[Rfam]
The family of this 133-nucleotide sequence from Actinoplanes derwentensis is "c-di-AMP riboswitch aptamer (ydaO/yuaA leader)".
Its family is annotated with regulation of gene expression and cyclic-di-AMP binding in the Gene Ontology.
RNA sequence: GGCAGGCCACCGCCCAAUCGUCGCGAGACGAACCGGGGAACCAGGUCACUGGGGUGUAUCCGCAGUUGCGGUAGGGAUUGCUUCCGUCCCGAACCCGUCAGCUAACUCGGUCGGCGGAGUCACGGAAGGAACU
Numbered sequence: 001g002g003c004a005g006g007c008c009a010c011c012g013c014c015c016a017a018u019c020g021u022c023g024c025g026a027g028a029c030g031a032a033c034c035g036g037g038g039a040a041c042c043a044g045g046u047c048a049c050u051g052g053g054g055u056g057u058a059u060c061c062g063c064a065g066u067u068g069c070g071g072u073a074g075g076g077a078u079u080g081c082u083u084c085c086g087u088c089c090c091g092a093a094c095c096c097g098u099c100a101g102c103u104a105a106c107u108c109g110g111u112c113g114g115c116g117g118a119g120u121c122a123c124g125g126a127a128g129g130a131a132c133u
Stems, first nucleotide, its partner, number of pairs: 011116004018031005032111006042051002052096003060071004074090004